[Rfam]
RNA sequence: GACCCCACUUAUAAAUUUUUUUGGAUAUAAUUAAAAAUUUACAUAUGCUUUUGGGAUAGAUUAAAAUUGCCAAGAUCUGAAGAGGGAGAAUUUAUUUGUGCCCUCCUCCUAUAUGAAAUGGCAGAACAGAAAAAA
Number, nucleotide and partner (000 for none) at each position: 001g000002a000003c000004c055005c054006c053007a052008c000009u000010u000011a000012u041013a040014a039015a038016u000017u000018u000019u000020u000021u000022u000023g000024g000025a000026u000027a000028u000029a000030a000031u000032u000033a000034a000035a000036a000037a000038u015039u014040u013041a012042c000043a000044u000045a000046u000047g000048c000049u000050u000051u000052u007053g006054g005055g004056a000057u000058a000059g000060a000061u000062u000063a000064a000065a000066a000067u000068u000069g122070c121071c120072a119073a000074g000075a000076u000077c000078u000079g000080a000081a000082g000083a000084g000085g000086g000087a110088g109089a000090a107091u000092u000093u000094a000095u000096u000097u000098g000099u000100g000101c000102c000103c000104u000105c000106c000107u090108c000109c088110u087111a000112u000113a000114u000115g000116a000117a000118a000119u072120g071121g070122c069123a000124g000125a000126a000127c000128a000129g000130a000131a000132a000133a000134a000135a000